[Rfam]
RNA sequence: CCUUUAAACAAAGGGGAGUAGCGUUAGGGUUCGCCCUAAAACAAAGUCGUCAUUCCAUGGACGGAAAGUCCAUCGGCUUUGUUGACAUGAAUUCAUGUUC
Numbered sequence: 001c002c003u004u005u006a007a008a009c010a011a012a013g014g015g016g017a018g019u020a021g022c023g024u025u026a027g028g029g030u031u032c033g034c035c036c037u038a039a040a041a042c043a044a045a046g047u048c049g050u051c052a053u054u055c056c057a058u059g060g061a062c063g064g065a066a067a068g069u070c071c072a073u074c075g076g077c078u079u080u081g082u083u084g085a086c087a088u089g090a091a092u093u094c095a096u097g098u099u100c
Base pairs, nucleotide, nucleotide: 025038026037027036040083041082042081043080044079045078046077047076048075049074057073058072059071060070061069084099085098086097087096088095089094
Shown here is a 100-nucleotide RNA sequence from Peribacillus cavernae, a member of the family "Manganese Mn2+ riboswitch aptamer (yybP-ykoY)".
A search with the family's covariance model found it, with a score of 52 bits.
About the family: This RNA was originally discovered in E. coli during a large scale screen and was named SraF. The family was later found to exist upstream of related families of protein genes in many bacteria, including the the yybP and ykoK genes in B. subtilis. The specific functions of these proteins are unknown, but this structured RNA element may be involved in their genetic regulation as a riboswitch.
The base pairs follow the family's consensus structure.
NCBI's taxonomy places the organism under Bacteria, Bacillati, Bacillota, Bacilli, Peribacillus.